[Rfam]
RNA: Selenocysteine insertion sequence 1
Organism: Anguilla anguilla
RNA sequence: UCCAGCUAAUGAGGGCUUGUGCCAAAAACCCAGAAUGGGAUGGGCAAGCCUGAUGUCCCCUGGA
Numbered sequence: 001u002c003c004a005g006c007u008a009a010u011g012a013g014g015g016c017u018u019g020u021g022c023c024a025a026a027a028a029c030c031c032a033g034a035a036u037g038g039g040a041u042g043g044g045c046a047a048g049c050c051u052g053a054u055g056u057c058c059c060c061u062g063g064a
Stems, first nucleotide, its partner, number of pairs: 001064005014050007022042001029039003